The record is a 173-nucleotide RNA sequence from Triticum urartu, which matches "MIR2118 microRNA precursor family" in Rfam. On this family, see Xue et al., Nucleic Acids Res 2009: "Characterization and expression profiles of miRNAs in rice seeds". Gene Ontology terms of the family: RISC complex and miRNA-mediated post-transcriptional gene silencing.
RNA sequence: GCCGGGAAAAGGAAGAAAGAGAGAGCACAAGAGCACUGGGAAUGGGAACAUGGAGGAAAGACCUUCUUUUUUGUUUGCACAUCUAGUGUUGGGGGCAAAUAUAUUAGAUGGAUAAUUUCCUGAUGCCUCCCAUUCCUACCGUUCUUGUGCACUCCUUCCUAUUUCUUUUGGCU
Numbered sequence: 001g002c003c004g005g006g007a008a009a010a011g012g013a014a015g016a017a018a019g020a021g022a023g024a025g026c027a028c029a030a031g032a033g034c035a036c037u038g039g040g041a042a043u044g045g046g047a048a049c050a051u052g053g054a055g056g057a058a059a060g061a062c063c064u065u066c067u068u069u070u071u072u073g074u075u076u077g078c079a080c081a082u083c084u085a086g087u088g089u090u091g092g093g094g095g096c097a098a099a100u101a102u103a104u105u106a107g108a109u110g111g112a113u114a115a116u117u118u119c120c121u122g123a124u125g126c127c128u129c130c131c132a133u134u135c136c137u138a139c140c141g142u143u144c145u146u147g148u149g150c151a152c153u154c155c156u157u158c159c160u161a162u163u164u165c166u167u168u169u170g171g172c173u
Stems, first nucleotide, its partner, number of pairs: 009164003013160001015158003021154003026149009037138011049125003053121001055120005